The family of this 115-nucleotide sequence from Erinaceus europaeus is "Small nucleolar RNA SNORA26".
Clan: SNORA27 clan.
RNA sequence: GUGUUCUUUUAACGUUGAUGCACUGCUUUAAGAGGCUAACACAGAUGAGUAGUCUCAUAAAACCCAGGGAAAAAAUUGCAGAACACAUCUUUGGAUCCUGCCUAGAAUCACAGUU
Number, nucleotide and partner (000 for none) at each position: 001g000002u051003g050004u049005u048006c047007u000008u045009u044010u043011a000012a000013c000014g040015u039016u038017g037018a000019u035020g000021c032022a000023c000024u000025g000026c000027u000028u000029u000030a000031a000032g021033a000034g000035g019036c000037u017038a016039a015040c014041a000042c000043a010044g009045a008046u000047g006048a005049g004050u003051a002052g109053u000054c000055u106056c105057a103058u000059a000060a000061a000062a000063c000064c094065c093066a092067g091068g090069g089070a088071a000072a000073a000074a000075a000076u083077u082078g000079c000080a000081g000082a077083a076084c000085a000086c000087a000088u070089c069090u068091u067092u066093g065094g064095a000096u000097c000098c000099u000100g000101c000102c000103u057104a000105g056106a055107a000108u000109c052110a000111c000112a000113g000114u000115u000
A search with the family's covariance model found it, with a score of 79 bits. Pairs were carried over by alignment from the consensus structure, which was predicted with RNAalifold. Taxonomically the source falls in Erinaceus (Eukaryota, Chordata, Craniata, Amniota). For this family Rfam cites "RNomics: an experimental approach that identifies 201 candidates for novel, small, non-messenger RNAs in mouse" (Huttenhofer et al., EMBO J, 2001). The snoRNA HBI-6 belong to the H/ACA family of snoRNAs, guiding the pseudouridylation of position U4522 if the 28S rRNA. HBI-6 is the human orthologue of mouse MBI-6 snoRNA. Rfam 15.1 lists 1,943 matches to the family in 640 species. It is annotated as an H/ACA-box small nucleolar RNA.